[Rfam]
RNA: Guanidine-II riboswitch aptamer (mini-ykkC)
RNA sequence: AAGCGAGGACGACCUCCCCCCAUGUUGGGACAGAACCCGGGACGGCCCGG
Numbered sequence: 001a002a003g004c005g006a007g008g009a010c011g012a013c014c015u016c017c018c019c020c021c022a023u024g025u026u027g028g029g030a031c032a033g034a035a036c037c038c039g040g041g042a043c044g045g046c047c048c049g050g
Stems, first nucleotide, its partner, number of pairs: 003018001005016004037050005
Dot-bracket structure: ..(.((((....)))).)..................(((((....)))))